Rfam assigns this 79-nucleotide RNA sequence from Nezara viridula to the family "mir-9/mir-79 microRNA precursor family". For this family Rfam cites "Identification of novel genes coding for small expressed RNAs" (Lagos-Quintana et al., Science, 2001). The organism belongs to Nezara, within Eukaryota. Gene Ontology terms of the family: miRNA-mediated post-transcriptional gene silencing and RISC complex. It scores 66 bits against the family's covariance model. Pairs were carried over by alignment from the consensus structure, which was predicted with RNAalifold.

[Rfam]
RNA sequence: GUUGUCCUCUCUUUGGUGAUCUAAGCUGUAUGACCUUUCAGGUGUAUUCAUAAAGCUAGAUUACCGAAGUCAGGAAAAC
Dot-bracket structure: (((.(.((..((((((((((((.((((.(((((..............))))).))))))))))))))))..)).).)))
Numbered sequence: 001g002u003u004g005u006c007c008u009c010u011c012u013u014u015g016g017u018g019a020u021c022u023a024a025g026c027u028g029u030a031u032g033a034c035c036u037u038u039c040a041g042g043u044g045u046a047u048u049c050a051u052a053a054a055g056c057u058a059g060a061u062u063a064c065c066g067a068a069g070u071c072a073g074g075a076a077a078a079c
Stems, first nucleotide, its partner, number of pairs: 001079003005075001007073002011069012024057004029052005